[Rfam]
RNA sequence: AGAUGAGAGAUACACCCCGCUCACAGGGGACUGUGGGCGGUCUCAGGCCGGGGCCUCCCCAGCUUCGACCUGGUCGUGCCCUCGCGCACACAACCGGCGCCUGACGCCGGGAUCUCCUCACCGAUCGGA
Numbered sequence: 001a002g003a004u005g006a007g008a009g010a011u012a013c014a015c016c017c018c019g020c021u022c023a024c025a026g027g028g029g030a031c032u033g034u035g036g037g038c039g040g041u042c043u044c045a046g047g048c049c050g051g052g053g054c055c056u057c058c059c060c061a062g063c064u065u066c067g068a069c070c071u072g073g074u075c076g077u078g079c080c081c082u083c084g085c086g087c088a089c090a091c092a093a094c095c096g097g098c099g100c101c102u103g104a105c106g107c108c109g110g111g112a113u114c115u116c117c118u119c120a121c122c123g124a125u126c127g128g129a
Stems, first nucleotide, its partner, number of pairs: 004120004009116002017040010043073005049067006076089004094110006121128002
The record is a 129-nucleotide RNA sequence from Streptomyces lucensis, which matches "Streptomyces RNA 5676" in Rfam. The pairing is the family consensus, mapped onto this sequence. The match comes from Rfam's covariance-model search (135 bits). Identified by deep sequencing of transcriptome at the end of exponential growth phase. Appears longer on northern blot than sequencing transcript.